Notes:
Shown here is a 133-nucleotide RNA from Rothia terrae, a member of the family "SAM (S-adenosyl methionine) riboswitch aptamer". Rfam describes the family as follows. SAM-IV is a mRNA element that regulates gene expression via direct sensing of S-adenosylmethionine (SAM or AdoMet). The family's consensus secondary structure is taken from published work. Its family is annotated with regulation of gene expression and S-adenosylmethionine metabolic process in the Gene Ontology.
RNA sequence: CUUCAAGAGUUUCAACUGACAAGCUCCGACUUUAGUUGAACGCCAACCCCAUGUUCACGGGUGGCUCGGAUGACGAAGCGGUCUGUAUUCGCACGUUUUGUGCAUUUGAGUUUGGUACAGACAAGAGCAGUAU
Numbered sequence: 001c002u003u004c005a006a007g008a009g010u011u012u013c014a015a016c017u018g019a020c021a022a023g024c025u026c027c028g029a030c031u032u033u034a035g036u037u038g039a040a041c042g043c044c045a046a047c048c049c050c051a052u053g054u055u056c057a058c059g060g061g062u063g064g065c066u067c068g069g070a071u072g073a074c075g076a077a078g079c080g081g082u083c084u085g086u087a088u089u090c091g092c093a094c095g096u097u098u099u100g101u102g103c104a105u106u107u108g109a110g111u112u113u114g115g116u117a118c119a120g121a122c123a124a125g126a127g128c129a130g131u132a133u
Base pairs, nucleotide, nucleotide: 001078002077003076004075009041011040012039013038014037015036016035022031023030042065043064044063047061048060049059081122082121083120084119085118086117087116088115